Rfam assigns this 58-nucleotide RNA from Streptomyces sp. So13.3 to the family "msiK RNA". The organism belongs to Streptomyces, within Bacteria. The base pairs follow the family's consensus structure, which is taken from published work. Rfam classes the family as a cis-regulatory element.
[Rfam]
RNA sequence: ACCAAUCCUUCCUUUACUCGGAUCGUCCGGCACGUUCCUGCCGGUGAGGGGUGCAACA
Number, nucleotide and partner (000 for none) at each position: 001a000002c000003c000004a000005a000006u000007c000008c000009u000010u051011c050012c049013u048014u047015u046016a045017c000018u000019c000020g000021g000022a000023u000024c000025g000026u000027c044028c043029g042030g041031c040032a039033c000034g000035u000036u000037c000038c000039u032040g031041c030042c029043g028044g027045u016046g015047a014048g013049g012050g011051g010052u000053g000054c000055a000056a000057c000058a000